The record is a 53-nucleotide sequence from Massilia sp. Leaf139, which matches "nhaA-I RNA" in Rfam. Rfam describes the family as follows. Acidobacteria, Alphaproteobacteria, Betaproteobacteria and Gammaproteobacteria, Verrucomicrobia, cand. division NC10. By type it is a riboswitch. The organism belongs to Massilia, within Bacteria.
RNA sequence: GGGUGAUCGCAUCGUACAGGUGCGACAGGAUGCGCGAUGGUCGGGCCGCCACG
Number, nucleotide and partner (000 for none) at each position: 001g000002g000003g000004u000005g026006a000007u025008c024009g023010c022011a021012u020013c019014g000015u000016a000017c000018a000019g013020g012021u011022g010023c009024g008025a007026c005027a000028g000029g000030a000031u000032g000033c000034g000035c053036g052037a000038u051039g050040g049041u048042c000043g000044g000045g000046c000047c000048g041049c040050c039051a038052c036053g035